[Rfam]
A member of the RNA family "BsrG" from Neobacillus rhizophilus, 259 nucleotides long. About the family: bsrE, bsrG and bsrH pair through intermolecular interactions with antisense sRNAs. They form type I toxin/antitoxin system that includes an mRNA encoding for a short, toxic peptide (bsrE, bsrG and bsrH) and an antitoxin that is comprised of an antisense RNA. bsrG encodes a 39-amino-acid toxin, and the 180 nucleotide antisense sRNA called SR4 acts as the antitoxin (they overlap by 123 nucleotides). SR4 interaction with the 3'UTR of bsrG RNA promotes bsrG degradation and inhibits its translation. Gene Ontology terms of the family: toxin activity and autolysis. A search with the family's covariance model found it, with a score of 91 bits. A reference for the family is Saito et al. (2008), "Novel small RNA-encoding genes in the intergenic regions of Bacillus subtilis", Gene. It is annotated as a small RNA. Lineage of the source: Bacteria > Bacillati > Bacilli > Bacillaceae > Neobacillus. The base pairs follow the family's consensus structure, which was predicted with WAR.

RNA sequence: CAAUAGAAUAGGACUUCUCAAGGGUGGACGGCACAUCUCCGAAUGAAAGGGGGUGAUGCUGUUUGACAGUAUUUCAGGCCUUGAUGUUAGCUGUCUCGUUUGCCAGCCUGAUUAUCACAAUUCUGUCUUUUCACCAAAAAAAAUAAUCCACCCUUGAGCCGGCAAGCAUAAGCGGUGGAUUUUUGCCCUUCUUUUGCCGAAUCCCCUUGAUGGGAACCAGCUAUUGCAUGGCCGAGCGAGUACCUGUCGUCAUGCUCGG
Dot-bracket structure: (((((...(.(...((((((((((.((......((.((((........)))).)).........(((((.(......(.............)........((...............)).).)))))...................))..))))))))...........(((...................))).....))((((......))))..).).))))).....((((((................))))))